[Rfam]
RNA sequence: CAGGGCUGGGGAAGGGCUGCUGGGCAGCAGGGCCAGUGAGCCCAGCCUCGUACCAGCCAGUCCCACCCGUGCCCGAGAUCAACUCUCCAGCAGGUUCCAGCUGGGGCCCAUCCUGUGCAGUAACAGGUGUGAGCAUCCAUGCAGCCUUUUGAUGGUCAUGUAUGAUACUGCAUACAACA
Numbered sequence: 001c002a003g004g005g006c007u008g009g010g011g012a013a014g015g016g017c018u019g020c021u022g023g024g025c026a027g028c029a030g031g032g033c034c035a036g037u038g039a040g041c042c043c044a045g046c047c048u049c050g051u052a053c054c055a056g057c058c059a060g061u062c063c064c065a066c067c068c069g070u071g072c073c074c075g076a077g078a079u080c081a082a083c084u085c086u087c088c089a090g091c092a093g094g095u096u097c098c099a100g101c102u103g104g105g106g107c108c109c110a111u112c113c114u115g116u117g118c119a120g121u122a123a124c125a126g127g128u129g130u131g132a133g134c135a136u137c138c139a140u141g142c143a144g145c146c147u148u149u150u151g152a153u154g155g156u157c158a159u160g161u162a163u164g165a166u167a168c169u170g171c172a173u174a175c176a177a178c179a
Base pairs, nucleotide, nucleotide: 003074004073005072006071008068009067010066015062016061017060018059019057020056021055022054024053027046028045030043032041033040086106087105088104089102090101091100093098114174115173116172117171118170119169120168121167122166124164125163130158131157132156134154135153136152137151141148
Shown here is a 179-nucleotide RNA sequence from Brachypteracias leptosomus, a member of the family "Small Cajal body specific RNA 16".
scaRNAs are a specific class of small nuclear RNAs which localise to the Cajal bodies and guide the modification of RNA polymerase II transcribed spliceosomal RNAs U1, U2, U4, U5 and U12. ACA47 belongs to the H/ACA box class of guide RNAs as it has the predicted hairpin-hinge-hairpin-tail structure, the conserved H/ACA-box motifs and is found associated with GAR1. ACA47 is predicted to guide the pseudouridylation of residue U5 of the U1 spliceosomal snRNA.
Rfam classes the family as a small Cajal body RNA.
The organism belongs to Brachypteracias, within Eukaryota.
Gene Ontology terms of the family: RNA processing and nucleolus.